[Rfam]
Record summary:
A member of the RNA family "Plastid-ccsA-ndhD-1 3UTR RNA" from Primulina eburnea, 55 nucleotides long. Lineage of the source: Eukaryota > Streptophyta > Streptophytina > Didymocarpinae > Primulina. Rfam's curators write: Plastid-ccsA-ndhD-1 is a non-coding RNA (ncRNA) recognised in plastids. The family's RNA type in Rfam is cis-regulatory element. Rfam's curators put it in the seed alignment. The family has 488 seed sequences and 1,322 matches in Rfam 15.1.

RNA sequence: UGAACAGGUGAGAACCCUGUGAAUUUAAUAGUGUAGUGAUUCACAAGGUUCUCAC
Numbered sequence: 001u002g003a004a005c006a007g008g009u010g011a012g013a014a015c016c017c018u019g020u021g022a023a024u025u026u027a028a029u030a031g032u033g034u035a036g037u038g039a040u041u042c043a044c045a046a047g048g049u050u051c052u053c054a055c
Stems, first nucleotide, its partner, number of pairs: 008055009018045008